[Rfam]
RNA sequence: UGUGAUCAAGGAAAUGGUGUCUUCCUAUUUGAACCGUUCUUCCCAGAACUGAUGGCGCCUGCAAAUAA
Dot-bracket structure: .........[[[[..((((((]]]]..........((((......))))....)))))).........
The record is a 68-nucleotide sequence from Pseudobacter ginsenosidimutans, which matches "Fluoride riboswitch aptamer (crcB RNA motif)" in Rfam.